[Rfam]
RNA sequence: CUCUGGCACCGCUCACUACGGAUCGUCCGGCACGUACCUGCCGGUGAGGGGAAAUAUCC
Number, nucleotide and partner (000 for none) at each position: 001c000002u000003c000004u000005g000006g000007c000008a000009c051010c050011g000012c048013u047014c046015a045016c000017u000018a000019c000020g000021g000022a000023u000024c000025g000026u000027c044028c043029g042030g041031c040032a039033c000034g000035u000036a000037c000038c000039u032040g031041c030042c029043g028044g027045u015046g014047a013048g012049g000050g010051g009052a000053a000054a000055u000056a000057u000058c000059c000
The family of this 59-nucleotide RNA sequence from Pengzhenrongella frigida is "msiK RNA". Lineage of the source: Bacteria > Bacillati > Actinomycetota > Actinomycetes > Pengzhenrongella.